A member of the RNA family "mir-460 microRNA precursor family" from Acipenser ruthenus, 77 nucleotides long.

[Rfam]
RNA sequence: UAUUCCAGCUCCUGCAUUGUACACACUGUGUAUAUUGAUUCUAUAUGCACAGCGCAUACAAUGUGGAUGCUGUGGUG
Numbered sequence: 001u002a003u004u005c006c007a008g009c010u011c012c013u014g015c016a017u018u019g020u021a022c023a024c025a026c027u028g029u030g031u032a033u034a035u036u037g038a039u040u041c042u043a044u045a046u047g048c049a050c051a052g053c054g055c056a057u058a059c060a061a062u063g064u065g066g067a068u069g070c071u072g073u074g075g076u077g
Base pairs, nucleotide, nucleotide: 012066013065015063016062017061018060019059020058021057024054026052027051028050029049030048031047

Rfam links the family to the GO terms miRNA-mediated post-transcriptional gene silencing and RISC complex. The source organism's lineage runs through Eukaryota, Craniata, Euteleostomi, Acipenseriformes and Acipenser. The literature on the family includes a 2006 paper in FEBS Lett by Xu et al., "Identification of microRNAs from different tissues of chicken embryo and adult chicken". Rfam 15.1 lists 1,029 matches to the family in 498 species.